Background: The family of this 137-nucleotide RNA sequence from Micromonospora sp. Llam0 is "c-di-AMP riboswitch aptamer (ydaO/yuaA leader)". The source organism's lineage runs through Bacteria, Bacillati, Actinomycetes, Micromonosporales and Micromonospora. Rfam's curators write: This family represents a conserved RNA structure found upstream of the ydaO and yuaA genes in Bacillus subtilis and related genes in other bacteria. The match comes from Rfam's covariance-model search (81 bits).
RNA sequence: CGGUGACCGCCGCCCAAUCACCCCUCCGGGGUGAGCCGGGGAACCACGUUUCCACCGGGGUGAAUCCGCGCCAGCGGUAGGGAUCGUUCCGUCCCGAACCCGUCAGCUAACUCGGUCGGCGGCCAAGGAAAGGAACA
Number, nucleotide and partner (000 for none) at each position: 001c000002g000003g000004u000005g000006a000007c000008c000009g000010c000011c121012g120013c119014c118015c000016a000017a000018u034019c033020a032021c031022c030023c000024c000025u000026c000027c000028g000029g000030g022031g021032u020033g019034a018035g116036c115037c114038g113039g112040g111041g000042a000043a000044c000045c057046a000047c000048g000049u000050u000051u000052c000053c000054a000055c000056c000057g045058g101059g100060g099061u000062g000063a000064a000065u000066c077067c076068g075069c074070g000071c000072c000073a000074g069075c068076g067077g066078u000079a000080g095081g094082g093083a092084u000085c000086g000087u000088u000089c000090c000091g000092u083093c082094c081095c080096g000097a000098a000099c060100c059101c058102g000103u000104c000105a000106g000107c000108u000109a000110a000111c040112u039113c038114g037115g036116u035117c000118g014119g013120c012121g011122g000123c000124c000125a000126a000127g000128g000129a000130a000131a000132g000133g000134a000135a000136c000137a000